Rfam assigns this 139-nucleotide sequence from Oxynema aestuarii to the family "Guanidine-I riboswitch aptamer". The match comes from Rfam's covariance-model search (82 bits).
[Rfam]
RNA sequence: CAAACGAGCUUCUAGGGUUCCGAUUUAAGUCAAUAGAUUUGAAUGGCUGGUCCGAGAGAAGCAAACCAACCUUCAAUCAUACGGUUUCCAUAGGCGGAGAAACGGGUUGGUUACACGGCGGGAUAAAAGCCCGGGAGGA
Numbered sequence: 001c002a003a004a005c006g007a008g009c010u011u012c013u014a015g016g017g018u019u020c021c022g023a024u025u026u027a028a029g030u031c032a033a034u035a036g037a038u039u040u041g042a043a044u045g046g047c048u049g050g051u052c053c054g055a056g057a058g059a060a061g062c063a064a065a066c067c068a069a070c071c072u073u074c075a076a077u078c079a080u081a082c083g084g085u086u087u088c089c090a091u092a093g094g095c096g097g098a099g100a101a102a103c104g105g106g107u108u109g110g111u112u113a114c115a116c117g118g119c120g121g122g123a124u125a126a127a128a129g130c131c132c133g134g135g136a137g138g139a
Base pairs, nucleotide, nucleotide: 008062009061010060011059012058015053016052020050021049022047023044024043025042026041027040028039029038030037064112065111066110067109068108069107070106071105114134116137120132121131122130